[Rfam]
RNA sequence: CCGUGCAGCCGGGGAGAUAGCGGUGCCCUGUACCUGCAAUCCGCUACAGCAGGGGUGAUGUCUUGCCUAGGAUAACUUAUUGCAUAGCUGCCCUCUAUAAGUGAUGUUGACGUUUGGGUCUUACGCAAUGAAAAUUUGUGAAUCGUGUCAGGGCAGGAAUGCAGCAGCACUAAGCAAAACCUUUCGUGUGCCGUGAGGGAGCCUGAACCGAGUUAACUGUAGAGGUAACGUUUGUGGUAAUUAUUCGAAGCAAGGCGCACGG
Numbered sequence: 001c002c003g004u005g006c007a008g009c010c011g012g013g014g015a016g017a018u019a020g021c022g023g024u025g026c027c028c029u030g031u032a033c034c035u036g037c038a039a040u041c042c043g044c045u046a047c048a049g050c051a052g053g054g055g056u057g058a059u060g061u062c063u064u065g066c067c068u069a070g071g072a073u074a075a076c077u078u079a080u081u082g083c084a085u086a087g088c089u090g091c092c093c094u095c096u097a098u099a100a101g102u103g104a105u106g107u108u109g110a111c112g113u114u115u116g117g118g119u120c121u122u123a124c125g126c127a128a129u130g131a132a133a134a135u136u137u138g139u140g141a142a143u144c145g146u147g148u149c150a151g152g153g154c155a156g157g158a159a160u161g162c163a164g165c166a167g168c169a170c171u172a173a174g175c176a177a178a179a180c181c182u183u184u185c186g187u188g189u190g191c192c193g194u195g196a197g198g199g200a201g202c203c204u205g206a207a208c209c210g211a212g213u214u215a216a217c218u219g220u221a222g223a224g225g226u227a228a229c230g231u232u233u234g235u236g237g238u239a240a241u242u243a244u245u246c247g248a249a250g251c252a253a254g255g256c257g258c259a260c261g262g
Base pairs, nucleotide, nucleotide: 001262002261003260004259005258006257008056009055010054011029012028013027014026016024018022033053034052035051036050037049062254063253064252065251066250068248070246071245072244073243074242077240078239079238080237081236082235083234084233086231089227090226093224094223095222096221097220098219101217102216103214104213105212112208113207114206115205116204117203118202119201120197121196122195123194124193125192126188127187129186130185131184132183133182135178136177137176138175139174145170146169147168148167153162154161155160
Background
Bacterial large signal recognition particle RNA: a 262-nucleotide RNA from Lachnoclostridium phytofermentans. A search with the family's covariance model found it, with a score of 194 bits. Taxonomically the source falls in Lachnoclostridium phytofermentans (Bacteria, Bacillota, Lachnospiraceae, Lachnoclostridium).